The record is a 90-nucleotide RNA sequence from Esox lucius, which matches "mir-7 microRNA precursor family" in Rfam.
About the family: This family represents the microRNA (miRNA) precursor mir-7.
Lineage of the source: Eukaryota > Bilateria > Vertebrata > Euteleostomi > Esox.
RNA sequence: UGGUCCUGGACACUGUGGAAGACUAGUGAUUUUGUUGUUGUAUAUUUUGUCUCUGACAACAAGUCACAGUCUACCUCAGUGACCUGGUCC
Numbered sequence: 001u002g003g004u005c006c007u008g009g010a011c012a013c014u015g016u017g018g019a020a021g022a023c024u025a026g027u028g029a030u031u032u033u034g035u036u037g038u039u040g041u042a043u044a045u046u047u048u049g050u051c052u053c054u055g056a057c058a059a060c061a062a063g064u065c066a067c068a069g070u071c072u073a074c075c076u077c078a079g080u081g082a083c084c085u086g087g088u089c090c
Base pairs, nucleotide, nucleotide: 002089003088004087005086008084009083011081012080013079014078015077017075018074020072021071022070023069024068026067027066028065029064030063031062032061034060035059036058037057038056039055